[Rfam]
Record summary
sul1 RNA: a 59-nucleotide sequence from Paracoccus sp. 228. A search with the family's covariance model found it, with a score of 45 bits.

Nucleotides: 059
Base pairs, nucleotide, nucleotide: 006027007026008025009024010023011022013018035053036052037051038050039049
Number, partner (000 for none) and nucleotide at each position: 001000a002000u003000c004000g005000g006027a007026u008025c009024c010023c011022g012000u013018c014000g015000a016000c017000u018013g019000c020000g021000a022011u023010g024009g025008g026007a027006u028000g029000g030000c031000u032000u033000c034000u035053c036052c037051g038050g039049g040000c041000g042000c043000c044000u045000a046000u047000c048000c049039c050038c051037c052036g053035g054000c055000a056000a057000c058000c059000u
It is annotated as a riboswitch. NCBI's taxonomy places the organism under Bacteria, Pseudomonadota, Rhodobacterales, Paracoccaceae, Paracoccus.